The family of this 102-nucleotide RNA from Enterococcus faecalis is "Anti-Q RNA".
Rfam's curators put it in the seed alignment.
It is annotated as an antisense RNA.
Rfam describes the family as follows. Qa RNA is a cis-regulatory element from Enterococcus faecalis which is known to negatively regulate prgQ transcription via an antisense mechanism.
The organism belongs to Enterococcus, within Bacteria.

[Rfam]
RNA sequence: GUUGUAACUUAUGUUGCAACAAACGAGAACCGAUUAUAGUUCAUGGUGUCUCAUGAAUUAUUUAACUGUCCUCUGGGAUUCCCGUCCCAUGGCAGUCGGUUC
Numbered sequence: 001g002u003u004g005u006a007a008c009u010u011a012u013g014u015u016g017c018a019a020c021a022a023a024c025g026a027g028a029a030c031c032g033a034u035u036a037u038a039g040u041u042c043a044u045g046g047u048g049u050c051u052c053a054u055g056a057a058u059u060a061u062u063u064a065a066c067u068g069u070c071c072u073c074u075g076g077g078a079u080u081c082c083c084g085u086c087c088c089a090u091g092g093c094a095g096u097c098g099g100u101u102c
Base pairs, nucleotide, nucleotide: 001020002019003018004017005016006015007014008013027102028101029100030099031098032097033096038059039058040057041056042055043054044053045052066095067094068093069092070091074089075088076087077086078085079084